[Rfam]
RNA sequence: UAUAACGAAGUACUUCGUUUUCAGCGAGUUACGCUAAAUAUCAUCUACCGAAGUAUUACUACUUUAGAGGGAGGGGUUAUUGCUUAGUAUCAAACGAGGGGCAUAAAAAAAGCGCCGGGAGGCGCUUUUUACAUUAC
Numbered sequence: 001u002a003u004a005a006c007g008a009a010g011u012a013c014u015u016c017g018u019u020u021u022c023a024g025c026g027a028g029u030u031a032c033g034c035u036a037a038a039u040a041u042c043a044u045c046u047a048c049c050g051a052a053g054u055a056u057u058a059c060u061a062c063u064u065u066a067g068a069g070g071g072a073g074g075g076g077u078u079a080u081u082g083c084u085u086a087g088u089a090u091c092a093a094a095c096g097a098g099g100g101g102c103a104u105a106a107a108a109a110a111a112g113c114g115c116c117g118g119g120a121g122g123c124g125c126u127u128u129u130u131a132c133a134u135u136a137c
Stems, first nucleotide, its partner, number of pairs: 060069001109128008

A member of the RNA family "Enterobacteria sRNA STnc130" from Enterobacter cancerogenus, 137 nucleotides long.
The source organism's lineage runs through Bacteria, Gammaproteobacteria, Enterobacterales, Enterobacteriaceae and Enterobacter cancerogenus.
It is annotated as a small RNA.